[Rfam]
RNA sequence: GACUUCAGCUGAAAAAAUCAUCAACAACAAAGUUGUAGAACUCAUCAAGAUCUACAACUUUUAUUUUAGUCAUUUGUUCAUCCGAUAAAGUGGUACUAACAUUAUUCACAAAUUUUAUAUAUCUCUCGUGUGGUUUCAUAAACUAUAAAAGAGAUAUAUAAAUUUUGUGAACAAUGUUACUAUCACUUUGUCGGAUGAAGAAAUGAGCAAAAUAAAAGUUGUAGAUCUUGAUGAGUUCUACAACUUUGUUGUUGAUGGCUUUUUCAGCUGAAAUC
Numbered sequence: 001g002a003c004u005u006c007a008g009c010u011g012a013a014a015a016a017a018u019c020a021u022c023a024a025c026a027a028c029a030a031a032g033u034u035g036u037a038g039a040a041c042u043c044a045u046c047a048a049g050a051u052c053u054a055c056a057a058c059u060u061u062u063a064u065u066u067u068a069g070u071c072a073u074u075u076g077u078u079c080a081u082c083c084g085a086u087a088a089a090g091u092g093g094u095a096c097u098a099a100c101a102u103u104a105u106u107c108a109c110a111a112a113u114u115u116u117a118u119a120u121a122u123c124u125c126u127c128g129u130g131u132g133g134u135u136u137c138a139u140a141a142a143c144u145a146u147a148a149a150a151g152a153g154a155u156a157u158a159u160a161a162a163u164u165u166u167g168u169g170a171a172c173a174a175u176g177u178u179a180c181u182a183u184c185a186c187u188u189u190g191u192c193g194g195a196u197g198a199a200g201a202a203a204u205g206a207g208c209a210a211a212a213u214a215a216a217a218g219u220u221g222u223a224g225a226u227c228u229u230g231a232u233g234a235g236u237u238c239u240a241c242a243a244c245u246u247u248g249u250u251g252u253u254g255a256u257g258g259c260u261u262u263u264u265c266a267g268c269u270g271a272a273a274u275c
Stems, first nucleotide, its partner, number of pairs: 014262003018258004023253002026250002030246013044232010055221013070206006077199005083193010094182002097179003101175003105171008114162002117159006131145006
This 275-nucleotide RNA sequence from Miscanthus lutarioriparius belongs to the Rfam family "MIR821 microRNA precursor family".
The base pairs follow the family's consensus structure, which was predicted with RNAalifold.
The match comes from Rfam's covariance-model search (273 bits).